The family of this 174-nucleotide RNA sequence from Dendrosporobacter quercicolus is "Lysine riboswitch aptamer".
RNA sequence: AAUUGAGAUAGAGGUGCGGUGUAAUAAGAGUAUGUGCCCCGAGUUGCCGGCGAUGACGGGUGCAGAACGGAUUAACCGCCGAAGCAGUGGUUUCUUGGCUGGAAACCAUGGCUGGUUCUGUGUUGAAUAAAUACAGGACUGUCAUACGUAACCGUAUGGAGCGCUAUCUUGCAC
Numbered sequence: 001a002a003u004u005g006a007g008a009u010a011g012a013g014g015u016g017c018g019g020u021g022u023a024a025u026a027a028g029a030g031u032a033u034g035u036g037c038c039c040c041g042a043g044u045u046g047c048c049g050g051c052g053a054u055g056a057c058g059g060g061u062g063c064a065g066a067a068c069g070g071a072u073u074a075a076c077c078g079c080c081g082a083a084g085c086a087g088u089g090g091u092u093u094c095u096u097g098g099c100u101g102g103a104a105a106c107c108a109u110g111g112c113u114g115g116u117u118c119u120g121u122g123u124u125g126a127a128u129a130a131a132u133a134c135a136g137g138a139c140u141g142u143c144a145u146a147c148g149u150a151a152c153c154g155u156a157u158g159g160a161g162c163g164c165u166a167u168c169u170u171g172c173a174c
Base pairs, nucleotide, nucleotide: 006169007168008167009166010165011164016079017078018077019076020075022074023073024072025071033064034063035062036061037060038059039058083113084112085111087109088108089107090106091105092104093103094102114140115139116138117137118136119135120134121133122132123131124130142159143158144157145156146155147154148153
About the family: Riboswitches are metabolite binding domains within certain messenger RNAs that serve as precision sensors for their corresponding targets.